A member of the RNA family "Purine riboswitch aptamer" from Anaerobacillus alkaliphilus, 102 nucleotides long. The organism belongs to Anaerobacillus, within Bacteria. About the family: Riboswitches are metabolite binding domains within certain messenger RNAs that serve as precision sensors for their corresponding targets. It scores 87 bits against the family's covariance model.
[Rfam]
RNA sequence: CGAACAUUGUAAAAAUACCUUCGUAUAUCCUUAGGAAUAUGGCCUAAGAGUCUCUACCGGAUUGCCGUAAAUAAUCUGACUAUGAAGGCAGAACUUACUCUU
Numbered sequence: 001c002g003a004a005c006a007u008u009g010u011a012a013a014a015a016u017a018c019c020u021u022c023g024u025a026u027a028u029c030c031u032u033a034g035g036a037a038u039a040u041g042g043c044c045u046a047a048g049a050g051u052c053u054c055u056a057c058c059g060g061a062u063u064g065c066c067g068u069a070a071a072u073a074a075u076c077u078g079a080c081u082a083u084g085a086a087g088g089c090a091g092a093a094c095u096u097a098c099u100c101u102u
Base pairs, nucleotide, nucleotide: 018088019087020086021085022084023083024082025081030048031047032046033045034044035043058078059077060076061075062074063073064072